[Rfam]
RNA sequence: GUAGGCUAUGGAGACAUGGCGCCAAAGAGUCCCGCGGGAAAAUUCAUAGGUAGUCUAUGCGCGGUCUGUGGUGUCCUGACCAUUGCACUUCCGGUUCCGGUAAUCGUGAAUAAU
Numbered sequence: 001g002u003a004g005g006c007u008a009u010g011g012a013g014a015c016a017u018g019g020c021g022c023c024a025a026a027g028a029g030u031c032c033c034g035c036g037g038g039a040a041a042a043u044u045c046a047u048a049g050g051u052a053g054u055c056u057a058u059g060c061g062c063g064g065u066c067u068g069u070g071g072u073g074u075c076c077u078g079a080c081c082a083u084u085g086c087a088c089u090u091c092c093g094g095u096u097c098c099g100g101u102a103a104u105c106g107u108g109a110a111u112a113a114u
Stems, first nucleotide, its partner, number of pairs: 001114002004111001007108005014101002018097002021095002037077002040074001050062002